[Rfam]
The family of this 131-nucleotide sequence from Dipodomys ordii is "Small nucleolar RNA SNORA33". Rfam classes the family as an H/ACA-box small nucleolar RNA. Taxonomically the source falls in Dipodomys (Eukaryota, Gnathostomata, Amniota, Rodentia). The family's consensus secondary structure was predicted with PFOLD. From the family's description: ACA33 is a member of the H/ACA class of snoRNA that guide the sites of modification of uridines to pseudouridines.
RNA sequence: AAGCCAGCCAGUGAGUCUGCAUUCCUAAAUAUGUAUAUAAAGAGAUUUAGGUAAAGUUGGCAAUAACAGUGUCAUGACAUGAGCCUUAAGGACAAUCAAAGUCAUUGAGGUCCCUGAAAAUGGCUACAACA
Dot-bracket structure: ..(((((........(((......................))).............))))).........((((........(((((((.(((.......))).))))))).........)))).......
Numbered sequence: 001a002a003g004c005c006a007g008c009c010a011g012u013g014a015g016u017c018u019g020c021a022u023u024c025c026u027a028a029a030u031a032u033g034u035a036u037a038u039a040a041a042g043a044g045a046u047u048u049a050g051g052u053a054a055a056g057u058u059g060g061c062a063a064u065a066a067c068a069g070u071g072u073c074a075u076g077a078c079a080u081g082a083g084c085c086u087u088a089a090g091g092a093c094a095a096u097c098a099a100a101g102u103c104a105u106u107g108a109g110g111u112c113c114c115u116g117a118a119a120a121u122g123g124c125u126a127c128a129a130c131a
Stems, first nucleotide, its partner, number of pairs: 003061005016043003071124004083111007091103003